[Rfam]
RNA sequence: CGGUAUUCGACGGUGAAUAAUAAAAAUGACAUUGCGACUCAUUCUAUUAUUGCUCGAGAAUACCCUU
Numbered sequence: 001c002g003g004u005a006u007u008c009g010a011c012g013g014u015g016a017a018u019a020a021u022a023a024a025a026a027u028g029a030c031a032u033u034g035c036g037a038c039u040c041a042u043u044c045u046a047u048u049a050u051u052g053c054u055c056g057a058g059a060a061u062a063c064c065c066u067u
Stems, first nucleotide, its partner, number of pairs: 003063006012054003016051007

Background: Rfam assigns this 67-nucleotide RNA sequence from Caenorhabditis remanei to the family "mir-234 microRNA precursor family". Gene Ontology terms of the family: miRNA-mediated post-transcriptional gene silencing and RISC complex. Clan: mir-137 clan. The literature on the family includes a 2003 paper in Genes Dev by Lim et al., "The microRNAs of Caenorhabditis elegans". The base pairs follow the family's consensus structure, which was predicted with RNAalifold. The organism belongs to Caenorhabditis, within Eukaryota. It is one of the family's seed sequences.